[Rfam]
RNA sequence: UACAUCAAUAGAGGUUGCGACCAACAUCAGUACAUGUGUGAGUCCCUGUAUGGACCAUGACCGCAUGGAAAGGGACGGUCGCCGAAGCGCUAGGGAAUACGGGCCCUAGUGAGCUGGGACGGGUCACCAAGAGGAUCCGAACUGUCGUAGCAUUAAACAAUUGGCUACGGGGCGCUUGCGACGAG
Dot-bracket structure: .....(...((.....((((((..(.......((((((.......................))))))......)..))))))...((((((((((........)))))))..)))((..((((((........))))))..)).(((((((............)))))))....))...).....